RNA sequence: GUACUUACCUGGCAGGGGAGAUACCAUGAUCACAAAGGUGGUUUUCCCUGAGCAAGACUUAUCCUUUGCACUUCAGUUGUGUUGAACCCUGCAAUUUCCCCAAAUAUGGGAAAGUUGACUACAUAAUUUGUGGUAGUGGGGGAUUGCAUUUGUGCUCUUCUGGU
Numbered sequence: 001g002u003a004c005u006u007a008c009c010u011g012g013c014a015g016g017g018g019a020g021a022u023a024c025c026a027u028g029a030u031c032a033c034a035a036a037g038g039u040g041g042u043u044u045u046c047c048c049u050g051a052g053c054a055a056g057a058c059u060u061a062u063c064c065u066u067u068g069c070a071c072u073u074c075a076g077u078u079g080u081g082u083u084g085a086a087c088c089c090u091g092c093a094a095u096u097u098c099c100c101c102a103a104a105u106a107u108g109g110g111a112a113a114g115u116u117g118a119c120u121a122c123a124u125a126a127u128u129u130g131u132g133g134u135a136g137u138g139g140g141g142g143a144u145u146g147c148a149u150u151u152g153u154g155c156u157c158u159u160c161u162g163g164u
Stems, first nucleotide, its partner, number of pairs: 012122001014120002016048006023042005050089001052087001056083003060079002063076001092117003095113003099109002137163001139161003143158001146155003
Annotation:
U1 spliceosomal RNA: a 164-nucleotide RNA sequence from Erinaceus europaeus. On this family, see Oubridge et al., Nature 1994: "Crystal structure at 1.92 A resolution of the RNA-binding domain of the U1A spliceosomal protein complexed with an RNA hairpin". About the family: U1 is a small nuclear RNA (snRNA) component of the spliceosome (involved in pre-mRNA splicing).